[Rfam]
The family of this 115-nucleotide RNA from Trifolium subterraneum is "MIR2593 microRNA precursor family". The source organism's lineage runs through Eukaryota, Streptophyta, Streptophytina, Pentapetalae and Trifolium. A search with the family's covariance model found it, with a score of 97 bits.
RNA sequence: UUAUAAGAGAACUUUUACUUUUUAGGUUCAUUUGAAUACUAAUGUAUUUGGACUAUAUUAUAGUUUAGAUACAUUAGUAUUCCAAUGAACCUAAAAAGUAAAAGUUCUCUUAUAA
Dot-bracket structure: .((((((.(((((.(((((((((((.((((((.(((((((((((....((((...........))))....))))))))))).)))))).))))))))))).))))).)))))).